This 46-nucleotide RNA sequence from Larimichthys crocea belongs to the Rfam family "Histone 3' UTR stem-loop". The mRNAs of metazoan histone genes lack a poly-A tail. 3' end processing occurs at a site between a highly conserved stem-loop (modelled by this family) and a purine rich region around 20 nts downstream (the histone downstream element, or HDE). The stem-loop is bound by a 31 kDa stem-loop binding protein (SLBP - also termed the histone hairpin binding protein, or HBP). Together with U7 snRNA binding of the HDE, SLBP binding nucleate s the formation of the processing complex.
RNA sequence: ACAAAGGUCCUUUUCAGGACCACCCACCAUUUCAACUAAGAGCUGU
Numbered sequence: 001a002c003a004a005a006g007g008u009c010c011u012u013u014u015c016a017g018g019a020c021c022a023c024c025c026a027c028c029a030u031u032u033c034a035a036c037u038a039a040g041a042g043c044u045g046u
Stems, first nucleotide, its partner, number of pairs: 006021006